[Rfam]
RNA sequence: AGAACCUUUAACACAACCCCGUGAGGUUGAGAAGGAAGCGGAAAAUAAAAGGGAUAACUGUAUCCUUUUGUGCUACCCUCUUGUCCUAUGGGCAAGAGGGUUUUUGCU
Numbered sequence: 001a002g003a004a005c006c007u008u009u010a011a012c013a014c015a016a017c018c019c020c021g022u023g024a025g026g027u028u029g030a031g032a033a034g035g036a037a038g039c040g041g042a043a044a045a046u047a048a049a050a051g052g053g054a055u056a057a058c059u060g061u062a063u064c065c066u067u068u069u070g071u072g073c074u075a076c077c078c079u080c081u082u083g084u085c086c087u088a089u090g091g092g093c094a095a096g097a098g099g100g101u102u103u104u105u106g107c108u
Stems, first nucleotide, its partner, number of pairs: 005035005014029005048069009075101012
Dot-bracket structure: ....(((((....(((((......))))).)))))............(((((((((....))))))))).....((((((((((((...)))))))))))).......
This 108-nucleotide RNA sequence from Gottfriedia endophytica belongs to the Rfam family "PyrR binding site". By type it is a cis-regulatory element. It scores 62 bits against the family's covariance model. The organism belongs to Gottfriedia, within Bacteria.